[Rfam]
Nucleotides: 122
Stems, first nucleotide, its partner, number of pairs: 008043003011039004017034005044068008083119006090112009
Number, partner (000 for none) and nucleotide at each position: 001000u002000c003000a004000u005000c006000a007000u008043c009042a010041c011039c012038a013037u014036c015000a016000u017034c018033c019032u020031g021030a022000c023000u024000a025000g026000c027000c028000u029000u030021u031020c032019a033018g034017g035000c036014g037013a038012u039011g040000u041010g042009u043008g044068c045067u046066g047065g048064a049063a050062g051061a052000c053000a054000u055000u056000c057000a058000g059000g060000a061051u062050c063049u064048u065047c066046c067045a068044g069000u070000g071000g072000u073000g074000c075000a076000g077000g078000a079000c080000g081000u082000g083119a084118g085117a086116g087115a088114g089000c090112c091111c092110c093109c094108g095107g096106a097105a098104g099000a100000u101000c102000g103000c104098c105097u106096u107095c108094c109093g110092g111091g112090g113000u114088u115087u116086u117085u118084u119083u120000u121000u122000g

Shown here is a 122-nucleotide RNA from Erwinia tracheiphila, a member of the family "Histidine operon leader". The source organism's lineage runs through Bacteria, Pseudomonadati, Pseudomonadota, Gammaproteobacteria and Erwinia. Rfam classes the family as a cis-regulatory leader. Rfam's curators write: At least 6 amino acid operons are known to be regulated by attenuation. In each a leader sequence of 150-200 bp is found upstream of the first gene in the operon. This leader sequence can assume two different secondary structures known as the terminator and the anti-terminator structure. In each case the leader also codes for very short peptide sequence that is rich in the end product amino acid of the operon. The terminator structure is recognised as a termination signal for RNA polymerase and the operon is not transcribed. This structure forms when the cell has an excess of the regulatory amino acid and ribosome movement over the leader transcript is not impeded. When there is a deficiency of the charged tRNA of the regulatory amino acid the ribosome translating the leader peptide stalls and the antiterminator structure can form. This allows RNA polymerase to transcribe the operon. In the Rfam alignment the consensus structure is of the terminator structure. Its family is annotated with histidine biosynthetic process in the Gene Ontology.